[Rfam]
RNA sequence: UGUGACCUCCACCCGGUGAUACCCGGCCGGACCGGCCCUGACUUCACUUCCCCGAUGUCAGGACCGGCCCGGAAGGGAAUCUCCAGGUGGAGAUAUAGACAA
Number, nucleotide and partner (000 for none) at each position: 001u000002g000003u000004g000005a000006c000007c000008u000009c090010c089011a088012c087013c086014c000015g084016g000017u000018g081019a080020u000021a000022c077023c076024c075025g000026g000027c072028c071029g070030g069031a000032c067033c066034g065035g064036c000037c062038c061039u060040g059041a058042c057043u000044u055045c000046a000047c000048u000049u000050c000051c000052c000053c000054g000055a044056u000057g042058u041059c040060a039061g038062g037063a000064c035065c034066g033067g032068c000069c030070c029071g028072g027073a000074a000075g024076g023077g022078a000079a000080u019081c018082u000083c000084c015085a000086g013087g012088u011089g010090g009091a000092g000093a000094u000095a000096u000097a000098g000099a000100c000101a000102a000
The family of this 102-nucleotide sequence from Tessaracoccus aquimaris is "mraW RNA". The base pairs follow the family's consensus structure, which is taken from published work. Lineage of the source: Bacteria > Bacillati > Propionibacteriales > Propionibacteriaceae > Tessaracoccus. It is annotated as a cis-regulatory element.